[Rfam]
RNA sequence: GUUGCUUCUUUUUGAUAAUGGGGUAACUGAUUUUUGUUGUUGGUUACUCUUAAUGGGAAGCAUAGAGUAAUAGGAAUUGGCCAGUUUUAAACAGCAUGAUGCUGUUGUUUAUCUAUUGCAUUGUGUUACCUGUCUGCUGGUAUAUUU
Number, nucleotide and partner (000 for none) at each position: 001g000002u000003u062004g061005c060006u059007u058008c057009u000010u000011u000012u000013u000014g000015a000016u053017a000018a051019u000020g000021g050022g049023g047024u046025a045026a044027c043028u000029g000030a000031u000032u000033u000034u000035u000036g000037u000038u000039g000040u000041u000042g000043g027044u026045u025046a024047c023048u000049c022050u021051u018052a000053a016054u000055g000056g000057g008058a007059a006060g005061c004062a003063u000064a000065g000066a000067g000068u000069a000070a000071u000072a000073g000074g000075a000076a000077u000078u000079g000080g141081c140082c139083a138084g137085u136086u000087u000088u000089a000090a000091a000092c000093a127094g126095c125096a000097u123098g122099a121100u120101g119102c000103u000104g000105u000106u000107g000108u000109u000110u000111a000112u000113c000114u000115a000116u000117u000118g000119c101120a100121u099122u098123g097124u000125g095126u094127u093128a000129c000130c000131u000132g000133u000134c000135u000136g085137c084138u083139g082140g081141u080142a000143u000144a000145u000146u000147u000
RNA: small nucleolar RNA snoR137